The family of this 57-nucleotide sequence from Phyllostomus discolor is "Selenocysteine insertion sequence 1". By type it is a cis-regulatory element. The base pairs follow the family's consensus structure, which is taken from published work. The match comes from Rfam's covariance-model search (36 bits).
RNA sequence: UUCACAGAAUGAUGGCACCUUCCUAAACCUGUGUGGGCGGUGUCUGAGACUCGUGAA
Numbered sequence: 001u002u003c004a005c006a007g008a009a010u011g012a013u014g015g016c017a018c019c020u021u022c023c024u025a026a027a028c029c030u031g032u033g034u035g036g037g038c039g040g041u042g043u044c045u046g047a048g049a050c051u052c053g054u055g056a057a
Base pairs, nucleotide, nucleotide: 001057002056003055004054005053014044015043016042017041018040019039021037022036023035029033